Rfam assigns this 116-nucleotide sequence from Brachypodium distachyon to the family "MIR5070 microRNA precursor family". It scores 102 bits against the family's covariance model. Lineage of the source: Eukaryota > Streptophyta > Embryophyta > Stipodae > Brachypodium. Rfam links the family to the GO terms RISC complex and miRNA-mediated post-transcriptional gene silencing.
RNA sequence: CAGGAUACCUUUUGACCUUCCUUAGUUCAACAAAAUGAACUAAAUUUUUAAAAUGACACAACUUUUUAAAAUACUAGUUCAUUUGUUUGAACUAAAAAUGGUCAAAAGAUAUCCUG
Numbered sequence: 001c002a003g004g005a006u007a008c009c010u011u012u013u014g015a016c017c018u019u020c021c022u023u024a025g026u027u028c029a030a031c032a033a034a035a036u037g038a039a040c041u042a043a044a045u046u047u048u049u050a051a052a053a054u055g056a057c058a059c060a061a062c063u064u065u066u067u068a069a070a071a072u073a074c075u076a077g078u079u080c081a082u083u084u085g086u087u088u089g090a091a092c093u094a095a096a097a098a099u100g101g102u103c104a105a106a107a108g109a110u111a112u113c114c115u116g
Stems, first nucleotide, its partner, number of pairs: 002115006009108009019098001022095009033084010